[Rfam]
RNA sequence: AUGUGGUUUAGUUAGGGGGCAGACAGCAAUUGGAACCCAAUUAACUUUGGGAUCCUUUGAGAGAGGCCUUUUGAAGGGACUCUGCAAUCUCAUUGAUUGUUCCUCAAGCAGCCUUUCACAUUU
Numbered sequence: 001a002u003g004u005g006g007u008u009u010a011g012u013u014a015g016g017g018g019g020c021a022g023a024c025a026g027c028a029a030u031u032g033g034a035a036c037c038c039a040a041u042u043a044a045c046u047u048u049g050g051g052a053u054c055c056u057u058u059g060a061g062a063g064a065g066g067c068c069u070u071u072u073g074a075a076g077g078g079a080c081u082c083u084g085c086a087a088u089c090u091c092a093u094u095g096a097u098u099g100u101u102c103c104u105c106a107a108g109c110a111g112c113c114u115u116u117c118a119c120a121u122u123u
Base pairs, nucleotide, nucleotide: 004021005020007018008017009016036051037050038049039048040047061117062116063115064114065113066112067111070108071107072106073105075104076103077102078101079100080099083096